Shown here is a 102-nucleotide RNA sequence from Colobus angolensis, a member of the family "Y RNA". The family has 104 seed sequences and 26,986 matches in Rfam 15.1. By type it is a non-coding RNA gene. It scores 40 bits against the family's covariance model. The base pairs follow the family's consensus structure, which is taken from published work. The organism belongs to Colobus angolensis, within Eukaryota.
[Rfam]
RNA sequence: GAGUGGUUCAAGUUCAGUGGUAUGUACAACUAAUUGAUCACAAUCUGUAACAGAUUUACUUGUUCCUUCUCCACUGCCACUGCUUCAUUUGGCUAGCCAUGA
Numbered sequence: 001g002a003g004u005g006g007u008u009c010a011a012g013u014u015c016a017g018u019g020g021u022a023u024g025u026a027c028a029a030c031u032a033a034u035u036g037a038u039c040a041c042a043a044u045c046u047g048u049a050a051c052a053g054a055u056u057u058a059c060u061u062g063u064u065c066c067u068u069c070u071c072c073a074c075u076g077c078c079a080c081u082g083c084u085u086c087a088u089u090u091g092g093c094u095a096g097c098c099a100u101g102a
Stems, first nucleotide, its partner, number of pairs: 001098001004095005010090002016081006028064003032060001